[Rfam]
This 87-nucleotide RNA from Gossypium mustelinum belongs to the Rfam family "MIR7486 microRNA precursor family". Rfam 15.1 lists 10,132 matches to the family in 36 species.

RNA sequence: CACGUCAGCGCGAGUUGCUGACGUGGCAGGAAAUCGCAUCCUAUAGGGCGCGAUUUGUUGCCAUGUCAGCAACCCGCGCUGACUUGG
Numbered sequence: 001c002a003c004g005u006c007a008g009c010g011c012g013a014g015u016u017g018c019u020g021a022c023g024u025g026g027c028a029g030g031a032a033a034u035c036g037c038a039u040c041c042u043a044u045a046g047g048g049c050g051c052g053a054u055u056u057g058u059u060g061c062c063a064u065g066u067c068a069g070c071a072a073c074c075c076g077c078g079c080u081g082a083c084u085u086g087g
Base pairs, nucleotide, nucleotide: 001086002085004083005082006081007080008079009078010077011076012075014073015072016071017070018069019068020067021066023064024063025062026061027060028059029058031056032055033054034053035052036051037050040047041046

Description: Rfam links the family to the GO terms miRNA-mediated post-transcriptional gene silencing and RISC complex. A search with the family's covariance model found it, with a score of 85 bits.